Source information: Shown here is an 85-nucleotide RNA from Desulfitobacterium hafniense, a member of the family "c-di-GMP-I-GGC riboswitch aptamer". It scores 70 bits against the family's covariance model. Taxonomically the source falls in Desulfitobacterium hafniense (Bacteria, Bacillota, Clostridia, Desulfitobacterium). Pairs were carried over by alignment from the consensus structure, which is taken from published work.
[Rfam]
RNA sequence: UGCGACAAAGGCAAACUUAGUGAAAGCUAAGGACGCAAAGCUAUGGGCCUUCCUGAUCAAGCUGAUGGCCGCCAAGCUACCGAAG
Numbered sequence: 001u002g003c004g005a006c007a008a009a010g011g012c013a014a015a016c017u018u019a020g021u022g023a024a025a026g027c028u029a030a031g032g033a034c035g036c037a038a039a040g041c042u043a044u045g046g047g048c049c050u051u052c053c054u055g056a057u058c059a060a061g062c063u064g065a066u067g068g069c070c071g072c073c074a075a076g077c078u079a080c081c082g083a084a085g
Stems, first nucleotide, its partner, number of pairs: 001085001003082002011036002016031006034071001039078004044074003047069003